[Rfam]
mir-374 microRNA precursor family: a 71-nucleotide sequence from Trichechus manatus. The literature on the family includes a 2007 paper in Cancer Res by Lui et al., "Patterns of known and novel small RNAs in human cervical cancer". The match comes from Rfam's covariance-model search (59 bits). Rfam links the family to the GO terms miRNA-mediated post-transcriptional gene silencing and RISC complex.

RNA sequence: ACACAAGCAAUUACAAUACAACUGGAUAAGUGCUACAACACUUACCAGGUUGUAUUAUAAUGGCCGAUGUA
Numbered sequence: 001a002c003a004c005a006a007g008c009a010a011u012u013a014c015a016a017u018a019c020a021a022c023u024g025g026a027u028a029a030g031u032g033c034u035a036c037a038a039c040a041c042u043u044a045c046c047a048g049g050u051u052g053u054a055u056u057a058u059a060a061u062g063g064c065c066g067a068u069g070u071a
Stems, first nucleotide, its partner, number of pairs: 013058001015056007023048001025046001027044006